[Rfam]
RNA sequence: UAACAAAAAAUCCCCAUGGAAACCAUGGGGGUCCUUCUAUAUCCUUAGAGGAAAGAAGGUAAAGGGAGAGGAGAAACCGGAGGAAGAACUUAUGGGGAAACGUAAGUCUUCUCCGCGG
Numbered sequence: 001u002a003a004c005a006a007a008a009a010a011u012c013c014c015c016a017u018g019g020a021a022a023c024c025a026u027g028g029g030g031g032u033c034c035u036u037c038u039a040u041a042u043c044c045u046u047a048g049a050g051g052a053a054a055g056a057a058g059g060u061a062a063a064g065g066g067a068g069a070g071g072a073g074a075a076a077c078c079g080g081a082g083g084a085a086g087a088a089c090u091u092a093u094g095g096g097g098a099a100a101c102g103u104a105a106g107u108c109u110u111c112u113c114c115g116c117g118g
Stems, first nucleotide, its partner, number of pairs: 011031009032066005046053001078115004083111004088107005
Rfam assigns this 118-nucleotide RNA from Mangrovibacillus cuniculi to the family "ylbH leader". The pairing is the family consensus, mapped onto this sequence. A search with the family's covariance model found it, with a score of 108 bits. This family is a putative regulatory RNA structure that is found upstream of the ylbH gene in B. subtilis and related low GC Gram-positive bacteria. NCBI's taxonomy places the organism under Bacteria, Bacillati, Bacillota, Bacilli, Mangrovibacillus. Its family is annotated with regulation of gene expression in the Gene Ontology. By type it is a cis-regulatory leader. For this family Rfam cites "New RNA motifs suggest an expanded scope for riboswitches in bacterial genetic control" (Barrick et al., Proc Natl Acad Sci U S A, 2004).